Description: A member of the RNA family "glmS glucosamine-6-phosphate activated ribozyme aptamer" from Eubacterium sp. AF22-8LB, 148 nucleotides long. For this family Rfam cites "Backbone and nucleobase contacts to glucosamine-6-phosphate in the glmS ribozyme" (Jansen et al., Nat Struct Mol Biol, 2006). The match comes from Rfam's covariance-model search (90 bits). The family's consensus secondary structure is taken from published work.

Nucleotides: 148
Stems, first nucleotide, its partner, number of pairs: 020034006043076005052064004077091006096138001097136005109124006
Number, partner (000 for none) and nucleotide at each position: 001000a002000g003000u004000a005000a006000a007000a008000a009000a010000a011000u012000a013000g014000c015000g016000c017000c018000a019000g020034g021033a022032c023031u024030a025029g026000u027000g028000a029025u030024u031023a032022g033021u034020u035000g036000a037000c038000g039000a040000g041000g042000a043076c044075c045074a046073g047072a048000c049000u050000u051000a052064u053063c054062g055061a056000a057000a058000a059000a060000u061055u062054c063053g064052g065000c066000g067000g068000g069000u070000a071000g072047u073046c074045u075044g076043g077091a078090g079089g080088u081087u082086g083000a084000u085000a086082c087081a088080a089079c090078c091077u092000u093000u094000a095000a096138c097136g098135a099134u100133g101132g102000a103000c104000a105000a106000a107000a108000a109124c110123a111122a112121u113120g114119u115000g116000u117000g118000a119114a120113u121112g122111u123110u124109g125000a126000a127000c128000a129000a130000a131000g132101c133100c134099a135098u136097u137000u138096g139000g140000u141000a142000u143000c144000c145000u146000c147000c148000a

Rfam classes the family as a riboswitch. The source organism's lineage runs through Bacteria, Bacillati, Clostridia, Eubacteriaceae and Eubacterium.